[Rfam]
RNA sequence: AAAGCAGAUCAGGCAAUCGCGGUGCCCGUAGGGCAGCGAGGAAGGUCCGGACUCCACAGGACGGGAUGGCGGCUAACGGCCGUCCGGCGCGAGCCGAGGAAUAGGGCCACAGAGACGAGUCUGCAGCGAGGGCGGAGCACAUCCGCACCGGUACGGCCACUCCGUAUCGUUCGCGCGGCCUGGCCGCGCCGAGUCGCUGCAGGGUGAAACGCGGCAACCUCCAUCCGGAGCAACACCAAAUAGGCAUGCGCGCGGCUUUUGCCGCACAGGGCGGUCCGUCCGAGCAUGCGGGUAGGUGGCUUGAGCCGUCCGGCAACGGACGGCCUAGAGGAAUGAUUGCCAGCGGGGCGACCCGCGUACAGAAUCCGGCCUAUCGAUCUGCUUUGCCU
Numbered sequence: 001a002a003a004g005c006a007g008a009u010c011a012g013g014c015a016a017u018c019g020c021g022g023u024g025c026c027c028g029u030a031g032g033g034c035a036g037c038g039a040g041g042a043a044g045g046u047c048c049g050g051a052c053u054c055c056a057c058a059g060g061a062c063g064g065g066a067u068g069g070c071g072g073c074u075a076a077c078g079g080c081c082g083u084c085c086g087g088c089g090c091g092a093g094c095c096g097a098g099g100a101a102u103a104g105g106g107c108c109a110c111a112g113a114g115a116c117g118a119g120u121c122u123g124c125a126g127c128g129a130g131g132g133c134g135g136a137g138c139a140c141a142u143c144c145g146c147a148c149c150g151g152u153a154c155g156g157c158c159a160c161u162c163c164g165u166a167u168c169g170u171u172c173g174c175g176c177g178g179c180c181u182g183g184c185c186g187c188g189c190c191g192a193g194u195c196g197c198u199g200c201a202g203g204g205u206g207a208a209a210c211g212c213g214g215c216a217a218c219c220u221c222c223a224u225c226c227g228g229a230g231c232a233a234c235a236c237c238a239a240a241u242a243g244g245c246a247u248g249c250g251c252g253c254g255g256c257u258u259u260u261g262c263c264g265c266a267c268a269g270g271g272c273g274g275u276c277c278g279u280c281c282g283a284g285c286a287u288g289c290g291g292g293u294a295g296g297u298g299g300c301u302u303g304a305g306c307c308g309u310c311c312g313g314c315a316a317c318g319g320a321c322g323g324c325c326u327a328g329a330g331g332a333a334u335g336a337u338u339g340c341c342a343g344c345g346g347g348g349c350g351a352c353c354c355g356c357g358u359a360c361a362g363a364a365u366c367c368g369g370c371c372u373a374u375c376g377a378u379c380u381g382c383u384u385u386g387c388c389u
Stems, first nucleotide, its partner, number of pairs: 001385010011374001012341007020038002023035005043372003047369005052230004059277004064226005069083005084098001085096004099221002104219002106215003121203002123200007234298004244289006269281004305324008

Annotation: This 389-nucleotide sequence from Pigmentiphaga humi belongs to the Rfam family "Bacterial RNase P class A". Rfam's curators write: Ribonuclease P (RNase P) is a ubiquitous endoribonuclease, found in archaea, bacteria and eukarya as well as chloroplasts and mitochondria. By type it is a ribozyme. The base pairs follow the family's consensus structure, which is taken from published work. A search with the family's covariance model found it, with a score of 227 bits. Gene Ontology terms of the family: dimeric ribonuclease P complex, tRNA processing and ribonuclease P activity.